[Rfam]
RNA sequence: GUCUUGUCAGUGAUGUUCUCAAACACAAAUGUCUGAACAAAUGAUUUUCUGUGAUUCACACGUUGUAACUGAGACAAGAC
Numbered sequence: 001g002u003c004u005u006g007u008c009a010g011u012g013a014u015g016u017u018c019u020c021a022a023a024c025a026c027a028a029a030u031g032u033c034u035g036a037a038c039a040a041a042u043g044a045u046u047u048u049c050u051g052u053g054a055u056u057c058a059c060a061c062g063u064u065g066u067a068a069c070u071g072a073g074a075c076a077a078g079a080c
Stems, first nucleotide, its partner, number of pairs: 002079007
Dot-bracket structure: .(((((((................................................................))))))).
Rfam assigns this 80-nucleotide sequence from Pleuronectes platessa to the family "Small nucleolar RNA SNORD72". Lineage of the source: Eukaryota > Opisthokonta > Teleostomi > Clupeocephala > Pleuronectes. Rfam describes the family as follows. snoRNA HBII-240 belongs to the CD family of snoRNAs. It is the human orthologue of the mouse MBII-240 and is predicted to guide 2'O-ribose methylation of the large 28S rRNA at residue U4590. It is annotated as a C/D-box small nucleolar RNA. Rfam links the family to the GO terms nucleolus and RNA processing. The base pairs follow the family's consensus structure.